[Rfam]
RNA: Mammalian CPEB3 ribozyme
RNA sequence: UGAGAAUUCCAGGCCAUAGCAGAAGCACUCACAAUGCCGCCCUGUCAAAUUCCAACACAUCUGUGAAUUCUGCU
Numbered sequence: 001u002g003a004g005a006a007u008u009c010c011a012g013g014c015c016a017u018a019g020c021a022g023a024a025g026c027a028c029u030c031a032c033a034a035u036g037c038c039g040c041c042c043u044g045u046c047a048a049a050u051u052c053c054a055a056c057a058c059a060u061c062u063g064u065g066a067a068u069u070c071u072g073c074u
Stems, first nucleotide, its partner, number of pairs: 012041003018074007025037003046063002049060002